[Rfam]
Nucleotides: 124
Base pairs, nucleotide, nucleotide: 005018007015008014019058020057021056024053025052026051027050028049029048030047036044080111081110082109083108088102089101090100091099092098093097
Number, partner (000 for none) and nucleotide at each position: 001000a002000u003000c004000a005018u006000c007015u008014u009000u010000c011000u012000u013000u014008g015007g016000g017000u018005a019058g020057c021056g022000c023000u024053a025052c026051u027050g028049u029048c030047c031000a032000a033000u034000g035000a036044a037000u038000g039000a040000g041000u042000a043000u044036u045000g046000a047030g048029g049028g050027c051026a052025g053024u054000a055000c056021u057020g058019c059000u060000a061000a062000c063000g064000c065000c066000u067000a068000c069000a070000u071000g072000a073000c074000a075000c076000a077000u078000c079000u080111g081110c082109a083108u084000c085000a086000a087000c088102u089101a090100g091099a092098g093097c094000a095000c096000u097093g098092c099091u100090u101089u102088a103000c104000u105000u106000c107000c108083g109082u110081g111080c112000a113000a114000u115000u116000u117000u118000u119000g120000g121000a122000a123000a124000a

The family of this 124-nucleotide sequence from Microcebus murinus is "U4atac minor spliceosomal RNA".
The organism belongs to Microcebus, within Eukaryota.
The family's consensus secondary structure is taken from published work.
The family's RNA type in Rfam is spliceosomal small nuclear RNA.